[Rfam]
RNA sequence: CUUUUCUCUUACUCACUCAACCUGGGUGUGAUGUUAUCCCCAUUGCUAUCCAUCACAACCUCCUUGAGUGAGCGAGAGCGGAG
Dot-bracket structure: ........(..(((((((((...((.(((((((.................))))))).))...))))))))).).........
Numbered sequence: 001c002u003u004u005u006c007u008c009u010u011a012c013u014c015a016c017u018c019a020a021c022c023u024g025g026g027u028g029u030g031a032u033g034u035u036a037u038c039c040c041c042a043u044u045g046c047u048a049u050c051c052a053u054c055a056c057a058a059c060c061u062c063c064u065u066g067a068g069u070g071a072g073c074g075a076g077a078g079c080g081g082a083g
Stems, first nucleotide, its partner, number of pairs: 009074001012072009024060002027057007